A member of the RNA family "Bacillaceae-1 RNA" from Bacillus sp. J14TS2, 124 nucleotides long. It scores 48 bits against the family's covariance model. The organism belongs to Bacillus, within Bacteria.
RNA sequence: GAACUAGGAAGAAAGGCUAAAUUCGCGCCGUCCUGGCGGCAGACUCAAACGCGACGUCCUGUCGCUUCGUCUGCACUAGUACAUCCUGUACGUCGCAACACCUUUCUGACCAACAUCCUGUUGG
Dot-bracket structure: ..........((((((........(((.(((..........................................................))).)))....))))))...(((((.....)))))
Numbered sequence: 001g002a003a004c005u006a007g008g009a010a011g012a013a014a015g016g017c018u019a020a021a022u023u024c025g026c027g028c029c030g031u032c033c034u035g036g037c038g039g040c041a042g043a044c045u046c047a048a049a050c051g052c053g054a055c056g057u058c059c060u061g062u063c064g065c066u067u068c069g070u071c072u073g074c075a076c077u078a079g080u081a082c083a084u085c086c087u088g089u090a091c092g093u094c095g096c097a098a099c100a101c102c103u104u105u106c107u108g109a110c111c112a113a114c115a116u117c118c119u120g121u122u123g124g
Stems, first nucleotide, its partner, number of pairs: 011106006025096003029092003110124005